[Rfam]
A member of the RNA family "Archaeal large subunit ribosomal RNA" from Natranaeroarchaeum sulfidigenes, 250 nucleotides of a longer RNA.

RNA sequence: GAGUACCUGACGGGAACGAGCAUAUAGUACGAGAGGAACUGUGCUUGGGUGCCACUGGUGUACCGGUUGUCCGCAAGGGCACGUGCCGGGCAGCUACGCACCACGGGGUAAGAGCUGAACGCAUCUAAGCUCGAAACCCACCUGGAUACGAGGUACUCCUGAGGUUACUCGUAGAAGAGGAGUUCGAUAGACUCGGGAUGUUAGCGUCGAGGCAACGAGACGUUGAGUCCGCGAGCACUAACAAACCAAG
Numbered sequence: 001g002a003g004u005a006c007c008u009g010a011c012g013g014g015a016a017c018g019a020g021c022a023u024a025u026a027g028u029a030c031g032a033g034a035g036g037a038a039c040u041g042u043g044c045u046u047g048g049g050u051g052c053c054a055c056u057g058g059u060g061u062a063c064c065g066g067u068u069g070u071c072c073g074c075a076a077g078g079g080c081a082c083g084u085g086c087c088g089g090g091c092a093g094c095u096a097c098g099c100a101c102c103a104c105g106g107g108g109u110a111a112g113a114g115c116u117g118a119a120c121g122c123a124u125c126u127a128a129g130c131u132c133g134a135a136a137c138c139c140a141c142c143u144g145g146a147u148a149c150g151a152g153g154u155a156c157u158c159c160u161g162a163g164g165u166u167a168c169u170c171g172u173a174g175a176a177g178a179g180g181a182g183u184u185c186g187a188u189a190g191a192c193u194c195g196g197g198a199u200g201u202u203a204g205c206g207u208c209g210a211g212g213c214a215a216c217g218a219g220a221c222g223u224u225g226a227g228u229c230c231g232c233g234a235g236c237a238c239u240a241a242c243a244a245a246c247c248a249a250g
Stems, first nucleotide, its partner, number of pairs: 001158008011144004017047008048102005056096003063089005068081005105139003112132005163247004167183004188240003192235004196230003204223005211216001

NCBI's taxonomy places the organism under Archaea, Methanobacteriota, Halobacteriales, Natronoarchaeaceae, Natranaeroarchaeum.
The family's consensus secondary structure is taken from published work.
It scores 2760 bits against the family's covariance model.